Rfam assigns this 129-nucleotide RNA sequence from Nannospalax galili to the family "Small nucleolar RNA SNORA61". ACA61 is a member of the H/ACA class of snoRNA that guide the sites of modification of uridines to pseudouridines. Lineage of the source: Eukaryota > Vertebrata > Amniota > Spalacidae > Nannospalax. By type it is an H/ACA-box small nucleolar RNA. Rfam 15.1 lists 881 matches to the family in 421 species. Pairs were carried over by alignment from the consensus structure, which was predicted with PFOLD. Its family is annotated with RNA processing and nucleolus in the Gene Ontology.

RNA sequence: ACCCUCUGGUUCCCUUUCCCAUUGGAUCUCAACACUGGUCUUGGUGGUUGUAAAGGAGGGAAAGCAUGUUGAAGCUGGCCUCAUAGCCUUAUAGUCUGGUAUAAGCAUGUGGGCUAGAUUCAAACAAGG
Numbered sequence: 001a002c003c004c005u006c007u008g009g010u011u012c013c014c015u016u017u018c019c020c021a022u023u024g025g026a027u028c029u030c031a032a033c034a035c036u037g038g039u040c041u042u043g044g045u046g047g048u049u050g051u052a053a054a055g056g057a058g059g060g061a062a063a064g065c066a067u068g069u070u071g072a073a074g075c076u077g078g079c080c081u082c083a084u085a086g087c088c089u090u091a092u093a094g095u096c097u098g099g100u101a102u103a104a105g106c107a108u109g110u111g112g113g114c115u116a117g118a119u120u121c122a123a124a125c126a127a128g129g
Base pairs, nucleotide, nucleotide: 003059004058005057006056007055019047020046021045022044023043025040026039027038028037075117076116077115078114079113080112081111090107092105